[Rfam]
RNA sequence: UGGGGAUACGCAGACUCCCCGCCUGAACCCAAGACGCUGCGCGUCCAAGCUCUGC
Numbered sequence: 001u002g003g004g005g006a007u008a009c010g011c012a013g014a015c016u017c018c019c020c021g022c023c024u025g026a027a028c029c030c031a032a033g034a035c036g037c038u039g040c041g042c043g044u045c046c047a048a049g050c051u052c053u054g055c
Base pairs, nucleotide, nucleotide: 001021002020003019004018005017006016010055011054012053013052014051033045034044035043036042037041
A member of the RNA family "chrB-b RNA", 55 nucleotides long. Rfam's curators put it in the seed alignment. By type it is a cis-regulatory element. The base pairs follow the family's consensus structure, which is taken from published work.